Annotation
A member of the RNA family "mir-204 microRNA precursor family" from Takifugu rubripes, 86 nucleotides long. Gene Ontology terms of the family: RISC complex and miRNA-mediated post-transcriptional gene silencing.
RNA sequence: UGUGACCUGUGGGCUUCCCUUUGUCAUCCUAUGCCUGGAGCUCGGAUAAGGCAGGGACAGCAAAGGGAUGCUCAGCUGUCACCACU
Numbered sequence: 001u002g003u004g005a006c007c008u009g010u011g012g013g014c015u016u017c018c019c020u021u022u023g024u025c026a027u028c029c030u031a032u033g034c035c036u037g038g039a040g041c042u043c044g045g046a047u048a049a050g051g052c053a054g055g056g057a058c059a060g061c062a063a064a065g066g067g068a069u070g071c072u073c074a075g076c077u078g079u080c081a082c083c084a085c086u
Stems, first nucleotide, its partner, number of pairs: 016068006023061002027057004033052004